This 91-nucleotide RNA belongs to the Rfam family "Repression of heat shock gene expression (ROSE) element". The literature on the family includes a 2004 paper in J Bacteriol by Balsiger et al., "Replicon-specific regulation of small heat shock genes in Agrobacterium tumefaciens". The family has 13 seed sequences and 381 matches in Rfam 15.1. Rfam classes the family as an RNA thermoregulator. Rfam links the family to the GO terms response to temperature stimulus and regulation of translation. Rfam describes the family as follows. This family represents a 5' UTR cis-regulatory element found in heat shock mRNAs and is known as the ROSE (repression of heat shock gene expression) element. The ROSE element is a negative regulator of heat shock gene expression. The family's consensus secondary structure is taken from published work.
RNA sequence: UAGCUAACUCUGACAAAGAAGCUAGCAUGCAGUUAAAUACUGCAUUCAAUCUUGUAUCCAUGUUGCUCAAAGGAGAAUAUGGCUAUGAGAG
Numbered sequence: 001u002a003g004c005u006a007a008c009u010c011u012g013a014c015a016a017a018g019a020a021g022c023u024a025g026c027a028u029g030c031a032g033u034u035a036a037a038u039a040c041u042g043c044a045u046u047c048a049a050u051c052u053u054g055u056a057u058c059c060a061u062g063u064u065g066c067u068c069a070a071a072g073g074a075g076a077a078u079a080u081g082g083c084u085a086u087g088a089g090a091g
Base pairs, nucleotide, nucleotide: 001006023049025047027045028044029043030042031041032040051089052088053087054086055085056084058082059081060080061079062078063077064076066075067074068073